RNA: Purine riboswitch aptamer
RNA sequence: AAUGUUUUGUAUUGUUACACUCAUAUAUGCCUAUAAUAUGGAUAGGCGUCUCUACAAAGUUGCCGUAAAUGACUUAACUAUGAGUGAAGAGAAAAAUAGU
Numbered sequence: 001a002a003u004g005u006u007u008u009g010u011a012u013u014g015u016u017a018c019a020c021u022c023a024u025a026u027a028u029g030c031c032u033a034u035a036a037u038a039u040g041g042a043u044a045g046g047c048g049u050c051u052c053u054a055c056a057a058a059g060u061u062g063c064c065g066u067a068a069a070u071g072a073c074u075u076a077a078c079u080a081u082g083a084g085u086g087a088a089g090a091g092a093a094a095a096a097u098a099g100u
Base pairs, nucleotide, nucleotide: 018086019085020084021083022082023081024080025079029047030046031045032044033043034042057075058074059073060072061071062070